[Rfam]
RNA: Mammalian CPEB3 ribozyme
RNA sequence: UUUCCAUAACAGCCAUGGCAGAAGUGCUCUUAUUGCAGCCCUGUCAGAUUCUAAUGAAUCUGUGAAUGCUGCU
Number, nucleotide and partner (000 for none) at each position: 001u000002u000003u000004c000005c000006a000007u000008a000009a000010c000011a000012g039013c038014c000015a000016u000017g073018g072019c071020a070021g069022a000023a067024g036025u035026g034027c000028u000029c000030u000031u000032a000033u000034u026035g025036c024037a000038g013039c012040c000041c000042u000043g000044u000045c062046a061047g060048a059049u058050u057051c056052u000053a000054a000055u000056g051057a050058a049059u048060c047061u046062g045063u000064g000065a000066a000067u023068g000069c021070u020071g019072c018073u017